[Rfam]
Nucleotides: 094
Stems, first nucleotide, its partner, number of pairs: 001094006008087002012029004018023001031047005050067003054063001071085004
Number, partner (000 for none) and nucleotide at each position: 001094g002093g003092g004091g005090g006089g007000a008087a009086g010000u011000g012029g013028c014027u015026g016000c017000c018023g019000u020000g021000g022000u023018u024000u025000a026015u027014a028013g029012c030000u031047c032046c033045g034044g035043u036000c037000u038000u039000g040000a041000a042000a043035a044034c045033c046032g047031g048000u049000a050067u051066a052065g053000c054063u055000a056000a057000a058000c059000a060000c061000a062000g063054a064000a065052c066051u067050a068000u069000c070000g071085a072084g073083g074082g075000u076000u077000c078000g079000a080000a081000u082074c083073c084072c085071u086009c087008u088000c089006c090005u091004c092003u093002c094001c